Annotation: Shown here is a 121-nucleotide sequence from Hymenochirus boettgeri, a member of the family "Small nucleolar RNA SNORA26". From the family's description: The snoRNA HBI-6 belong to the H/ACA family of snoRNAs, guiding the pseudouridylation of position U4522 if the 28S rRNA. HBI-6 is the human orthologue of mouse MBI-6 snoRNA. The family is grouped with related families in Rfam's "SNORA27 clan". A search with the family's covariance model found it, with a score of 52 bits.
RNA sequence: UUAUCCAUUCAAAGUUAUUUAGUGCUUUGCAGUGGUUAACACAGGGGGGCAGAAAAACCUCUCUCUAAAACUCUGGGAAGGAGUACAGACUCUUCUUGGUAUCCUGUCGUGGGGAACAUGU
Dot-bracket structure: .(.(((.((....((((..(...........)....))))...)).))).).........(((.(.......((((((.((..(....).)).)))))).........).)))........
Numbered sequence: 001u002u003a004u005c006c007a008u009u010c011a012a013a014g015u016u017a018u019u020u021a022g023u024g025c026u027u028u029g030c031a032g033u034g035g036u037u038a039a040c041a042c043a044g045g046g047g048g049g050c051a052g053a054a055a056a057a058c059c060u061c062u063c064u065c066u067a068a069a070a071c072u073c074u075g076g077g078a079a080g081g082a083g084u085a086c087a088g089a090c091u092c093u094u095c096u097u098g099g100u101a102u103c104c105u106g107u108c109g110u111g112g113g114g115a116a117c118a119u120g121u
Stems, first nucleotide, its partner, number of pairs: 002051001004049003008045002014040004020032001061113003065109001073099006080092002084089001